The family of this 365-nucleotide part of an RNA from Nakamurella aerolata is "Bacterial large subunit ribosomal RNA". Gene Ontology terms of the family: ribosome and structural constituent of ribosome. It scores 2846 bits against the family's covariance model.
RNA sequence: CGAGCGAACUAUGGUUAAGGAACUCGGCAAAAUACCCCCGUAACUUCGGGAGAAGGGGGGCCGAGGUGUGUGAAGCCCCUCGCGGGCUAGCACGUUUCGGCCGCAGAGACCAGCGAGAAGCGACUGUUUACUAAAAACACAGGUCCAUGCUAAGUCGCAAGACGACGUAUAUGGACUGACGCCUGCCCGGUGCUGGAAGGUUAAGAGGACCGGUUAGUUCCUUCGGGAGCGAAGCUGAGAAUUUAAGCCCCAGUAAACGGCGGUGGUAACUAUAACCAUCCUAAGGUAGCGAAAUUCCUUGUCGGGUAAGUUCCGACCUGCACGAAUGGCGUAACGACUUCUCGACUGUCUCAACCAUAGGCUCG
Numbered sequence: 001c002g003a004g005c006g007a008a009c010u011a012u013g014g015u016u017a018a019g020g021a022a023c024u025c026g027g028c029a030a031a032a033u034a035c036c037c038c039c040g041u042a043a044c045u046u047c048g049g050g051a052g053a054a055g056g057g058g059g060g061c062c063g064a065g066g067u068g069u070g071u072g073a074a075g076c077c078c079c080u081c082g083c084g085g086g087c088u089a090g091c092a093c094g095u096u097u098c099g100g101c102c103g104c105a106g107a108g109a110c111c112a113g114c115g116a117g118a119a120g121c122g123a124c125u126g127u128u129u130a131c132u133a134a135a136a137a138c139a140c141a142g143g144u145c146c147a148u149g150c151u152a153a154g155u156c157g158c159a160a161g162a163c164g165a166c167g168u169a170u171a172u173g174g175a176c177u178g179a180c181g182c183c184u185g186c187c188c189g190g191u192g193c194u195g196g197a198a199g200g201u202u203a204a205g206a207g208g209a210c211c212g213g214u215u216a217g218u219u220c221c222u223u224c225g226g227g228a229g230c231g232a233a234g235c236u237g238a239g240a241a242u243u244u245a246a247g248c249c250c251c252a253g254u255a256a257a258c259g260g261c262g263g264u265g266g267u268a269a270c271u272a273u274a275a276c277c278a279u280c281c282u283a284a285g286g287u288a289g290c291g292a293a294a295u296u297c298c299u300u301g302u303c304g305g306g307u308a309a310g311u312u313c314c315g316a317c318c319u320g321c322a323c324g325a326a327u328g329g330c331g332u333a334a335c336g337a338c339u340u341c342u343c344g345a346c347u348g349u350c351u352c353a354a355c356c357a358u359a360g361g362c363u364c365g
Stems, first nucleotide, its partner, number of pairs: 001365004009360008018351003035059005044049001060101012102106001114344007121336002125139003142177008150167001154163003180331004185261003190258002192254005199249003205243002211237004217230005262280006281285001291318001301317006